The family of this 50-nucleotide RNA sequence from Paracoccus aestuariivivens is "Xanthine riboswitch aptamer (NMT1 RNA)". NCBI's taxonomy places the organism under Bacteria, Pseudomonadota, Rhodobacterales, Paracoccaceae, Paracoccus. A search with the family's covariance model found it, with a score of 51 bits. The literature on the family includes a 2020 paper in RNA by Yu and Breaker, "A bacterial riboswitch class senses xanthine and uric acid to regulate genes associated with purine oxidation". Rfam links the family to the GO term purine nucleobase binding.

[Rfam]
RNA sequence: CCCCGGAGUAGAAGCGUUCAGGCCCAAUGGGUCCGGAAAUUGCUCCUCAA
Numbered sequence: 001c002c003c004c005g006g007a008g009u010a011g012a013a014g015c016g017u018u019c020a021g022g023c024c025c026a027a028u029g030g031g032u033c034c035g036g037a038a039a040u041u042g043c044u045c046c047u048c049a050a
Base pairs, nucleotide, nucleotide: 005046006045007044008043009042010041015035018037019036021033022032023031024030025029